[Rfam]
RNA sequence: GCGGCACAUCAAGAGUUGGGCCGACGCCCGACGCCAACCUGCCGUCCGGGCAAGGUGGCGCUUCCGAAAGGGAGGAUGCGGCCACGCCGGCAAUCAAACGGAGUCCG
Number, nucleotide and partner (000 for none) at each position: 001g000002c000003g000004g000005c000006a000007c078008a077009u076010c075011a000012a000013g000014a000015g032016u000017u031018g029019g028020g027021c026022c000023g000024a000025c000026g021027c020028c019029c018030g000031a017032c015033g059034c058035c057036a000037a000038c055039c054040u053041g051042c050043c049044g000045u103046c000047c101048g000049g043050g042051c041052a000053a040054g039055g038056u000057g035058g034059c033060g000061c000062u000063u000064c000065c000066g000067a000068a000069a000070g000071g000072g000073a000074g000075g010076a009077u008078g007079c000080g000081g091082c090083c089084a000085c000086g000087c000088c000089g083090g082091c081092a000093a000094u000095c000096a000097a000098a000099c000100g000101g047102a000103g045104u000105c000106c000107g000
RNA: SAM-I/IV (S-adenosyl methionine) riboswitch aptamer
Organism: Acetobacter nitrogenifigens